manA RNA: a 202-nucleotide RNA sequence.
The family's RNA type in Rfam is cis-regulatory element.
About the family: manA RNA has been located in 5'UTR regions of genes of mannose or fructose metabolism.
The base pairs follow the family's consensus structure, which is taken from published work.
The sequence is in the family's curated seed alignment.
[Rfam]
RNA sequence: GGAAGGGCUUAUAAUCCUUCCUGUGGGUGACUGAAAUAACCUGUUGUGAGCGGGUUAAGGUAUACGAUUCUCUGUGGUGGAGUACCGAUGGGCAAAUGUCUGAGGUAGGAUUUCCCAAUCCAAUUGUAGUACGAGUAGGCACAUAAUGAACUAAUGUUCACACCGAAAGUUGGGAGUAUGUAGUAGUCUCCCCCCACACCUA
Numbered sequence: 001g002g003a004a005g006g007g008c009u010u011a012u013a014a015u016c017c018u019u020c021c022u023g024u025g026g027g028u029g030a031c032u033g034a035a036a037u038a039a040c041c042u043g044u045u046g047u048g049a050g051c052g053g054g055u056u057a058a059g060g061u062a063u064a065c066g067a068u069u070c071u072c073u074g075u076g077g078u079g080g081a082g083u084a085c086c087g088a089u090g091g092g093c094a095a096a097u098g099u100c101u102g103a104g105g106u107a108g109g110a111u112u113u114c115c116c117a118a119u120c121c122a123a124u125u126g127u128a129g130u131a132c133g134a135g136u137a138g139g140c141a142c143a144u145a146a147u148g149a150a151c152u153a154a155u156g157u158u159c160a161c162a163c164c165g166a167a168a169g170u171u172g173g174g175a176g177u178a179u180g181u182a183g184u185a186g187u188c189u190c191c192c193c194c195c196a197c198a199c200c201u202a
Stems, first nucleotide, its partner, number of pairs: 001021006023197005030061002039055006064127006070082003075117003083107004108121004131170002135164001148159003151183003172192005